Background
Shown here is a 117-nucleotide RNA sequence from Gelria sp. Kuro-4, a member of the family "Molybdenum/Tungsten riboswitch aptamer (Moco RNA motif)".
[Rfam]
RNA sequence: UAUACCAUUUUUCUCCGAGUCCAGCCGCCUAAGGCGUAGCUAAGGCGAUGGACCGAUAGGGUAAGCGGGGAAACCUGCUUGCCUCCCGGUGCGGAAAGGAGAAAAGCGGACUUAAGG
Numbered sequence: 001u002a003u004a005c006c007a008u009u010u011u012u013c014u015c016c017g018a019g020u021c022c023a024g025c026c027g028c029c030u031a032a033g034g035c036g037u038a039g040c041u042a043a044g045g046c047g048a049u050g051g052a053c054c055g056a057u058a059g060g061g062u063a064a065g066c067g068g069g070g071a072a073a074c075c076u077g078c079u080u081g082c083c084u085c086c087c088g089g090u091g092c093g094g095a096a097a098g099g100a101g102a103a104a105a106g107c108g109g110a111c112u113u114a115a116g117g
Stems, first nucleotide, its partner, number of pairs: 006108001011103006019053005025047001027046003033041003059084011085094002
Taxonomically the source falls in Gelria (Bacteria, Bacillati, Thermoanaerobacterales, Thermoanaerobacteraceae).